[Rfam]
RNA sequence: GAUCCGGUAGCUCAGUUGGUAGAGCAACUGCCUUUUAAGCCGUGGGUCGUGGGUUCGAGCCCCACCCGGAUCA
Number, nucleotide and partner (000 for none) at each position: 001g072002a071003u070004c069005c068006g067007g066008u000009a000010g025011c024012u023013c022014a000015g000016u000017u000018g000019g000020u000021a000022g013023a012024g011025c010026a000027a043028c042029u000030g040031c039032c000033u000034u000035u000036u000037a000038a000039g031040c030041c000042g028043u027044g000045g000046g000047u000048c000049g065050u064051g063052g062053g061054u000055u000056c000057g000058a000059g000060c000061c053062c052063c051064a050065c049066c007067c006068g005069g004070a003071u002072c001073a000